[Rfam]
RNA sequence: ACUGUGGAUUGCUAUACAAACUGUAGUAGGUAGAUAUUUUGUAUCAUCAAGGCAGAGUACGGUGAAACAGUAA
Numbered sequence: 001a002c003u004g005u006g007g008a009u010u011g012c013u014a015u016a017c018a019a020a021c022u023g024u025a026g027u028a029g030g031u032a033g034a035u036a037u038u039u040u041g042u043a044u045c046a047u048c049a050a051g052g053c054a055g056a057g058u059a060c061g062g063u064g065a066a067a068c069a070g071u072a073a
Stems, first nucleotide, its partner, number of pairs: 001071005010059004021055003029048003033045004
Rfam assigns this 73-nucleotide sequence to the family "RAGATH-18 RNA". Actinobacteria, Firmicutes, Fusobacteria, Thermotogae (1 example). The sequence is in the family's curated seed alignment.